Overview
Rfam assigns this 84-nucleotide sequence from Hevea brasiliensis to the family "MIR473 microRNA precursor family". Rfam links the family to the GO terms RISC complex and miRNA-mediated post-transcriptional gene silencing. On this family, see Pantaleo et al., Plant J 2010: "Identification of grapevine microRNAs and their targets using high-throughput sequencing and degradome analysis". The family's consensus secondary structure was predicted with WAR. Lineage of the source: Eukaryota > eudicotyledons > fabids > Crotonoideae > Hevea. It scores 53 bits against the family's covariance model.

RNA sequence: AUUGCUCACUCUCCUCAAGGGCUUCAGCAGUGGCCGGACACAUGCAUGGCAAGGCUGGAGGUCAUUGGGGAGAGUGGACAAUAU
Numbered sequence: 001a002u003u004g005c006u007c008a009c010u011c012u013c014c015u016c017a018a019g020g021g022c023u024u025c026a027g028c029a030g031u032g033g034c035c036g037g038a039c040a041c042a043u044g045c046a047u048g049g050c051a052a053g054g055c056u057g058g059a060g061g062u063c064a065u066u067g068g069g070g071a072g073a074g075u076g077g078a079c080a081a082u083a084u
Base pairs, nucleotide, nucleotide: 006077007076008075009074010073011072012071013070014069015068016067017066018065020063021062022061023060024059025058